[Rfam]
RNA sequence: CCUUUAAGUAGAGGCGCGCUGCCUAUGAGUAUCCGAGCGGAGGGUGAUGCCGUCGAUGUUCGGGGAAAGGAGUCAGCGCCGAAGUGGCCAGGCCAUCAUACCGGGCUGCUGGUUCUGCAUUUAAGAAGUGCAGGACUGCCAUAGUCAUCCACUAUGGAGCGCUACCUGAAGG
Numbered sequence: 001c002c003u004u005u006a007a008g009u010a011g012a013g014g015c016g017c018g019c020u021g022c023c024u025a026u027g028a029g030u031a032u033c034c035g036a037g038c039g040g041a042g043g044g045u046g047a048u049g050c051c052g053u054c055g056a057u058g059u060u061c062g063g064g065g066a067a068a069g070g071a072g073u074c075a076g077c078g079c080c081g082a083a084g085u086g087g088c089c090a091g092g093c094c095a096u097c098a099u100a101c102c103g104g105g106c107u108g109c110u111g112g113u114u115c116u117g118c119a120u121u122u123a124a125g126a127a128g129u130g131c132a133g134g135a136c137u138g139c140c141a142u143a144g145u146c147a148u149c150c151a152c153u154a155u156g157g158a159g160c161g162c163u164a165c166c167u168g169a170a171g172g
Stems, first nucleotide, its partner, number of pairs: 006167001008165004016079006023072002032064008083110007091102002111137011139157007

Lysine riboswitch aptamer: a 172-nucleotide RNA sequence from Aeromonas simiae.
A search with the family's covariance model found it, with a score of 126 bits.
The base pairs follow the family's consensus structure, which is taken from published work.